The record is a 407-nucleotide RNA sequence from Roseobacter sp. SK209-2-6, which matches "Bacterial RNase P class A" in Rfam. Pairs were carried over by alignment from the consensus structure, which is taken from published work. The family's RNA type in Rfam is ribozyme.
RNA sequence: GCAGAAGGCUGGACGGCCGCUUUCAGAGGGUCACCCUUUGCGAGAGGAAAGUCCGGACUCCAUAAAGCAACGGUGCCGGGUAACGCCCGGGCGGGGGAACCCGACGGAAAGCGCCACAGAAAUGAAACCGCCUGCUUUUGCAGGUAAGGGUGAAACGGUGGAGUAAGAGACCACCGCGCCCCUGGCAACAGGGGUGGCAAGGCAAGCCCCACCGGGAGCAAUGCCAAAUAGGGUCCCCGCGCGGGCAGGUCGGAGCAAUCCGAAACCGCCGCUAGGCGCGCUUUAGCCGAGAGGGACCGGGUUGGCAGCUAGAGGUGCAUAGCAAUGUGCAUCGCAGAUGAAUGGUCGUCGAUCCCGGAGCCAUGGCUCCGGGGGGACAAAAUCCGGCUUACAGGCCUUCUGCGCAG
Numbered sequence: 001g002c003a004g005a006a007g008g009c010u011g012g013a014c015g016g017c018c019g020c021u022u023u024c025a026g027a028g029g030g031u032c033a034c035c036c037u038u039u040g041c042g043a044g045a046g047g048a049a050a051g052u053c054c055g056g057a058c059u060c061c062a063u064a065a066a067g068c069a070a071c072g073g074u075g076c077c078g079g080g081u082a083a084c085g086c087c088c089g090g091g092c093g094g095g096g097g098a099a100c101c102c103g104a105c106g107g108a109a110a111g112c113g114c115c116a117c118a119g120a121a122a123u124g125a126a127a128c129c130g131c132c133u134g135c136u137u138u139u140g141c142a143g144g145u146a147a148g149g150g151u152g153a154a155a156c157g158g159u160g161g162a163g164u165a166a167g168a169g170a171c172c173a174c175c176g177c178g179c180c181c182c183u184g185g186c187a188a189c190a191g192g193g194g195u196g197g198c199a200a201g202g203c204a205a206g207c208c209c210c211a212c213c214g215g216g217a218g219c220a221a222u223g224c225c226a227a228a229u230a231g232g233g234u235c236c237c238c239g240c241g242c243g244g245g246c247a248g249g250u251c252g253g254a255g256c257a258a259u260c261c262g263a264a265a266c267c268g269c270c271g272c273u274a275g276g277c278g279c280g281c282u283u284u285a286g287c288c289g290a291g292a293g294g295g296a297c298c299g300g301g302u303u304g305g306c307a308g309c310u311a312g313a314g315g316u317g318c319a320u321a322g323c324a325a326u327g328u329g330c331a332u333c334g335c336a337g338a339u340g341a342a343u344g345g346u347c348g349u350c351g352a353u354c355c356c357g358g359a360g361c362c363a364u365g366g367c368u369c370c371g372g373g374g375g376g377a378c379a380a381a382a383u384c385c386g387g388c389u390u391a392c393a394g395g396c397c398u399u400c401u402g403c404g405c406a407g
Base pairs, nucleotide, nucleotide: 001403002402003401004400005399006398007397008396009395010394011392012350013349014348015347016346017345018344020044021043022042024040025039026038027037028036049390050389051388053387054386055385056384057383058218059217060216061215069283071214072213073212074211075210076090077089078088079087080086091105092103093102094101095100106209107208111207112206113203114202115201128149129148130145131144132143133142134141135140157175158174159173160172161171176198177196178195179194180193181192182191183190184189222307223306224305225304232298233297234296235295236294237293277291279289280288314333315332316331317330318329319328320327321326
Dot-bracket structure: ((((((((((((((((((.(((.(((((.......))))).)))....[[[.[[[[[((((.......[.((((((((((.....)))))(((((....)))).)((...(((((............((((((((....))))))..)).......(((((.........)))))(((((((((....)))))))).)..)))..)))))))))))))...((((......((((((.......................................(.((..]....)).).)))))).....))))......((((((((....))))))))..........)))))))................................]]]]]]]].).))))))))))....